[Rfam]
RNA sequence: GUACGAUAAAGGCAAAGCCAUUGAAAAAUGGUGGCGCAAAGCUAGAGGGGCUAAACUUGAAUGAGUAUGCCAGCCAGCUACCGAA
Dot-bracket structure: ...........((...((((((....))))))...))..((((...(((((....(((....)))...)))..))))))......